A member of the RNA family "mir-1289 microRNA precursor family" from Rhinolophus ferrumequinum, 87 nucleotides long.
RNA sequence: CUGACUUAAAACACAGAUUGCUGGACCCCAGCCUGAGUUUUUGAAACUCAGGCUGGGGUCCAGCAAUCUGUGUUUUAACAAGCACCC
Number, nucleotide and partner (000 for none) at each position: 001c000002u000003g000004a000005c000006u000007u000008a000009a075010a074011a073012c072013a071014c070015a069016g068017a067018u000019u065020g064021c063022u062023g061024g060025a059026c058027c057028c056029c055030a054031g053032c052033c051034u050035g049036a000037g000038u000039u000040u000041u000042u000043g000044a000045a000046a000047c000048u000049c035050a034051g033052g032053c031054u030055g029056g028057g027058g026059u025060c024061c023062a022063g021064c020065a019066a000067u017068c016069u015070g014071u013072g012073u011074u010075u009076u000077a000078a000079c000080a000081a000082g000083c000084a000085c000086c000087c000
Gene Ontology terms of the family: RISC complex and miRNA-mediated post-transcriptional gene silencing.